[Rfam]
Rfam assigns this 152-nucleotide sequence from Devosia sp. Root413D1 to the family "FMN riboswitch aptamer (RFN element)". The organism belongs to Devosia, within Bacteria. Its family is annotated with FMN binding in the Gene Ontology. The match comes from Rfam's covariance-model search (118 bits).
RNA sequence: GCAAGUUCUCAGGGCGGGGUGCAAUUCCCCACCGGCGGUAGAUGGGUCGAAAGCCCAAAGCCCGCGAGCGCCUUGUGGUUCACCCCACAGGGGUCAGCAGAUCCGGUGUAACUCCGGAGCCGACGGUAUAGUCCGGAUGAAAGAGAACGGGA
Numbered sequence: 001g002c003a004a005g006u007u008c009u010c011a012g013g014g015c016g017g018g019g020u021g022c023a024a025u026u027c028c029c030c031a032c033c034g035g036c037g038g039u040a041g042a043u044g045g046g047u048c049g050a051a052a053g054c055c056c057a058a059a060g061c062c063c064g065c066g067a068g069c070g071c072c073u074u075g076u077g078g079u080u081c082a083c084c085c086c087a088c089a090g091g092g093g094u095c096a097g098c099a100g101a102u103c104c105g106g107u108g109u110a111a112c113u114c115c116g117g118a119g120c121c122g123a124c125g126g127u128a129u130a131g132u133c134c135g136g137a138u139g140a141a142a143g144a145g146a147a148c149g150g151g152a
Base pairs, nucleotide, nucleotide: 005148006147007146008145009144010143017029018028019027031132032131033122034121035065036064037063038062060120061119068098069097102118103117104116105115106114124135125134126133